[Rfam]
RNA sequence: CAAACGCAUGACAGGUGUUCGGCCGAGUCGAUUGCUAGGAUCCUAUGUUCCUGGUGAUUGACUGGUCGUUCUGAGAUUAUACUGUCAAAACUUGAUCUAGAUAAUACUAGCGAAAGGACAUGCGUGACUUUUGAU
Numbered sequence: 001c002a003a004a005c006g007c008a009u010g011a012c013a014g015g016u017g018u019u020c021g022g023c024c025g026a027g028u029c030g031a032u033u034g035c036u037a038g039g040a041u042c043c044u045a046u047g048u049u050c051c052u053g054g055u056g057a058u059u060g061a062c063u064g065g066u067c068g069u070u071c072u073g074a075g076a077u078u079a080u081a082c083u084g085u086c087a088a089a090a091c092u093u094g095a096u097c098u099a100g101a102u103a104a105u106a107c108u109a110g111c112g113a114a115a116g117g118a119c120a121u122g123c124g125u126g127a128c129u130u131u132u133g134a135u
Base pairs, nucleotide, nucleotide: 006123007122008121009120010119011085012084013083014082016079017071020068021067022066023065024064025063091116092115093114097110098109099108100107
RNA: TPP riboswitch aptamer (THI element)